Rfam assigns this 67-nucleotide RNA sequence from Gallus gallus to the family "Small nucleolar RNA SNORD42".
Gene Ontology terms of the family: nucleolus and RNA processing.
The family's RNA type in Rfam is C/D-box small nucleolar RNA.
The match comes from Rfam's covariance-model search (50 bits).
A reference for the family is Huttenhofer et al. (2001), "RNomics: an experimental approach that identifies 201 candidates for novel, small, non-messenger RNAs in mouse", EMBO J.
[Rfam]
RNA sequence: GUGCAGAUGAUGUGAACAAUUUUUACCACUGAGUAAACUGAUGUUCCCAAAGGAACCACUGAUGCAC
Numbered sequence: 001g002u003g004c005a006g007a008u009g010a011u012g013u014g015a016a017c018a019a020u021u022u023u024u025a026c027c028a029c030u031g032a033g034u035a036a037a038c039u040g041a042u043g044u045u046c047c048c049a050a051a052g053g054a055a056c057c058a059c060u061g062a063u064g065c066a067c
Stems, first nucleotide, its partner, number of pairs: 001067005